[Rfam]
RNA sequence: GCGCUCGUUGGUGGUCAUCCUCCUCCCAGAUCACCAACACGGCCGCCGAUCUCACCUCCUCCCGGGAUCGACGGCAGAGACAAGAGCCCCGCCGGAUCUCCUCCCCUGGCGGGGCUUCUUC
Numbered sequence: 001g002c003g004c005u006c007g008u009u010g011g012u013g014g015u016c017a018u019c020c021u022c023c024u025c026c027c028a029g030a031u032c033a034c035c036a037a038c039a040c041g042g043c044c045g046c047c048g049a050u051c052u053c054a055c056c057u058c059c060u061c062c063c064g065g066g067a068u069c070g071a072c073g074g075c076a077g078a079g080a081c082a083a084g085a086g087c088c089c090c091g092c093c094g095g096a097u098c099u100c101c102u103c104c105c106c107u108g109g110c111g112g113g114g115c116u117u118c119u120u121c
Stems, first nucleotide, its partner, number of pairs: 007038010042075004047070005085116011
A member of the RNA family "Alphaproteobacterial ar14" from Pseudaminobacter soli, 121 nucleotides long. A search with the family's covariance model found it, with a score of 78 bits. Lineage of the source: Bacteria > Alphaproteobacteria > Hyphomicrobiales > Phyllobacteriaceae > Pseudaminobacter. From the family's description: Smr14C2 was renamed NfeR1 (Nodule Formation Efficiency RNA) highly expressed in salt stress and during the symbiotic interaction on legume roots.